Source information: Rfam assigns this 140-nucleotide RNA sequence from Octopus sinensis to the family "U4 spliceosomal RNA". A search with the family's covariance model found it, with a score of 60 bits. Taxonomically the source falls in Octopus (Eukaryota, Metazoa, Mollusca, Octopodidae).
RNA sequence: AUAGUUGCGUAAUGUAAUUUUCCUAGCCAAUGAGGGUUAUCCGAGGCAACGUUAUUGCUAGUUGAAAAUUAUUAUUAUUAUCAUUAUUAUUAUUAGUAGUAGUAGUAGUAUUUUUUGAUGAACUGGUGUUUAUCAUCAGU
Numbered sequence: 001a002u003a004g005u006u007g008c009g010u011a012a013u014g015u016a017a018u019u020u021u022c023c024u025a026g027c028c029a030a031u032g033a034g035g036g037u038u039a040u041c042c043g044a045g046g047c048a049a050c051g052u053u054a055u056u057g058c059u060a061g062u063u064g065a066a067a068a069u070u071a072u073u074a075u076u077a078u079u080a081u082c083a084u085u086a087u088u089a090u091u092a093u094u095a096g097u098a099g100u101a102g103u104a105g106u107a108g109u110a111u112u113u114u115u116u117g118a119u120g121a122a123c124u125g126g127u128g129u130u131u132a133u134c135a136u137c138a139g140u
Stems, first nucleotide, its partner, number of pairs: 021051001024048001026047003034042003083109012122140007